[Rfam]
RNA sequence: UAGGGGGAGGAUAGAUGACUGGCUGGUACUGUGGUAACUAUAGCUCGCAGUACCAGACAGUCCUCUAACCUCCCCCUACA
Numbered sequence: 001u002a003g004g005g006g007g008a009g010g011a012u013a014g015a016u017g018a019c020u021g022g023c024u025g026g027u028a029c030u031g032u033g034g035u036a037a038c039u040a041u042a043g044c045u046c047g048c049a050g051u052a053c054c055a056g057a058c059a060g061u062c063c064u065c066u067a068a069c070c071u072c073c074c075c076c077u078a079c080a
Stems, first nucleotide, its partner, number of pairs: 001078005007072004013066003017062004023056009
Dot-bracket structure: (((((.((((..(((.((((..(((((((((................)))))))))..)))).)))..)))).)))))..
This 80-nucleotide RNA sequence from Myotis lucifugus belongs to the Rfam family "mir-9186 microRNA precursor family". It scores 82 bits against the family's covariance model. Its family is annotated with miRNA-mediated post-transcriptional gene silencing and RISC complex in the Gene Ontology. Taxonomically the source falls in Myotis (Eukaryota, Eumetazoa, Euteleostomi, Theria). The family has 31 seed sequences and 143 matches in Rfam 15.1.